A member of the RNA family "Mason-Pfizer monkey virus packaging signal" from Nannospalax galili, 278 nucleotides long. The base pairs follow the family's consensus structure, which was predicted with PFOLD. The family's RNA type in Rfam is cis-regulatory element. A reference for the family is Mustafa et al. (2004), "Mutational analysis of the predicted secondary RNA structure of the Mason-Pfizer monkey virus packaging signal", Virus Res.

[Rfam]
RNA sequence: UGGCGCCCCACGUGGUGCUUGGAUACUGGGUACAACGUGAGGGAGAUGACGUAGAAGAAGGGGUGCGCACCCGCUACAUCUCAAGUAGUUCGGAGACGCUAUGGGAGCCUGCCACGACCGAGCUGAAGGUAAGUCAAGUCGUCCAAUCAUGGGGCAAGCAUUAAGUCAGCAUCAGAUUUAUGUCAUACAUGUAAGGGAAGCUCUCAAGGCAAGAGGAGUAAAGGUAACAACUGAUGAUUUAUUUCAUUUCUUUGAUUUUGUGAAGGACCUUUGUCCCU
Numbered sequence: 001u002g003g004c005g006c007c008c009c010a011c012g013u014g015g016u017g018c019u020u021g022g023a024u025a026c027u028g029g030g031u032a033c034a035a036c037g038u039g040a041g042g043g044a045g046a047u048g049a050c051g052u053a054g055a056a057g058a059a060g061g062g063g064u065g066c067g068c069a070c071c072c073g074c075u076a077c078a079u080c081u082c083a084a085g086u087a088g089u090u091c092g093g094a095g096a097c098g099c100u101a102u103g104g105g106a107g108c109c110u111g112c113c114a115c116g117a118c119c120g121a122g123c124u125g126a127a128g129g130u131a132a133g134u135c136a137a138g139u140c141g142u143c144c145a146a147u148c149a150u151g152g153g154g155c156a157a158g159c160a161u162u163a164a165g166u167c168a169g170c171a172u173c174a175g176a177u178u179u180a181u182g183u184c185a186u187a188c189a190u191g192u193a194a195g196g197g198a199a200g201c202u203c204u205c206a207a208g209g210c211a212a213g214a215g216g217a218g219u220a221a222a223g224g225u226a227a228c229a230a231c232u233g234a235u236g237a238u239u240u241a242u243u244u245c246a247u248u249u250c251u252u253u254g255a256u257u258u259u260g261u262g263a264a265g266g267a268c269c270u271u272u273g274u275c276c277c278u
Stems, first nucleotide, its partner, number of pairs: 006030003012026003036048003087130001089128001090126002097120002100116001102114003138155002142153004163204001165201002213253006222240004227235001263278001265276004